[Rfam]
RNA: c-di-GMP-I riboswitch aptamer
Organism: Paraliobacillus quinghaiensis
RNA sequence: AUUAGAAAAAGGCAAACUUAUCGAAAGAUGAGGACGCAAAGCUAAGGACCUAAAGCUAUUUUUAGCUAUGGCAGCCUAGUUACCGAA
Numbered sequence: 001a002u003u004a005g006a007a008a009a010a011g012g013c014a015a016a017c018u019u020a021u022c023g024a025a026a027g028a029u030g031a032g033g034a035c036g037c038a039a040a041g042c043u044a045a046g047g048a049c050c051u052a053a054a055g056c057u058a059u060u061u062u063u064a065g066c067u068a069u070g071g072c073a074g075c076c077u078a079g080u081u082a083c084c085g086a087a
Base pairs, nucleotide, nucleotide: 012037013036017032018031019030020029021028022027040081041080042079043078045077046076047075049071050070055066056065057064058063